permuted transfer-messenger RNA: a 250-nucleotide RNA sequence from Candidatus Deianiraea vastatrix. About the family: Bacterial tmRNA, also known as 10Sa RNA or SsrA, is named for its dual tRNA and mRNA-like properties. Its role is to liberate the mRNA from a stalled ribosome. For this family Rfam cites "BRUCE: a program for the detection of transfer-messenger RNA genes in nucleotide sequences" (Laslett et al., Nucleic Acids Res, 2002).
[Rfam]
RNA sequence: GGCAAUAUAGUGCGUGGUUUUGAGUAUUCUUUUUGGACUAGGGGGCAGAACCCUACACCUCCACCACGAGGGCUGAAUUUGGUUUUGUUGCAUAGGUCAUUUUCAGCUUUCUUGAUGGGGGUGAAUUAGCUUCGACAGGGAGAGAAAAGGGAUUAAGCCUUGCUGGGUUGAUGAGAUUCCCACCGCUUGCGGUAAAAAUUAUCAAAGCUAUGUAAAUGGCAAAAAACUAAUUGCUGCUGUUGCCGCUUUU
Numbered sequence: 001g002g003c004a005a006u007a008u009a010g011u012g013c014g015u016g017g018u019u020u021u022g023a024g025u026a027u028u029c030u031u032u033u034u035g036g037a038c039u040a041g042g043g044g045g046c047a048g049a050a051c052c053c054u055a056c057a058c059c060u061c062c063a064c065c066a067c068g069a070g071g072g073c074u075g076a077a078u079u080u081g082g083u084u085u086u087g088u089u090g091c092a093u094a095g096g097u098c099a100u101u102u103u104c105a106g107c108u109u110u111c112u113u114g115a116u117g118g119g120g121g122u123g124a125a126u127u128a129g130c131u132u133c134g135a136c137a138g139g140g141a142g143a144g145a146a147a148a149g150g151g152a153u154u155a156a157g158c159c160u161u162g163c164u165g166g167g168u169u170g171a172u173g174a175g176a177u178u179c180c181c182a183c184c185g186c187u188u189g190c191g192g193u194a195a196a197a198a199u200u201a202u203c204a205a206a207g208c209u210a211u212g213u214a215a216a217u218g219g220c221a222a223a224a225a226a227c228u229a230a231u232u233g234c235u236g237c238u239g240u241u242g243c244c245g246c247u248u249u250u
Base pairs, nucleotide, nucleotide: 001164002163003162004161005160017153018152019151020150029142030141031140033138034137035136039055040054041053042052043051056123057122058121059120060119061118062117165180166179167178